[Rfam]
The record is a 94-nucleotide RNA from Weissella ceti, which matches "THF (Tetrahydrofolate) riboswitch aptamer" in Rfam. Gene Ontology term of the family: tetrahydrofolate metabolic process. On this family, see Ames et al., Chem Biol 2010: "A eubacterial riboswitch class that senses the coenzyme tetrahydrofolate". It scores 72 bits against the family's covariance model. Tetrahydrofolate (THF) riboswitch was first reported for Ames et al. as an RNA motif in 5' untranslated (5'-UTR)regions of folate transport and biosynthesis genes in Firmicutes genomes. Lineage of the source: Bacteria > Bacilli > Lactobacillales > Lactobacillaceae > Weissella.

Nucleotides: 094
Stems, first nucleotide, its partner, number of pairs: 002093004010082004016076004020071003026056002029054006040088005060068003
Number, partner (000 for none) and nucleotide at each position: 001000c002093a003092c004091a005090g006000g007000g008000u009000a010082g011081a012080c013079u014000u015000u016076g017075g018074c019073g020071c021070g022069u023000u024000a025000a026056g027055u028000g029054c030053u031052g032051c033050g034049g035000g036000a037000a038000c039000g040088g041087a042086a043085u044084g045000u046000g047000g048000a049034c050033c051032g052031c053030a054029g055027a056026c057000g058000a059000a060068g061067g062066a063000a064000c065000u066062u067061c068060c069022g070021c071020g072000a073019u074018g075017c076016c077000u078000u079013a080012g081011u082010c083000a084044c085043a086042u087041u088040c089000a090005c091004u092003g093002u094000u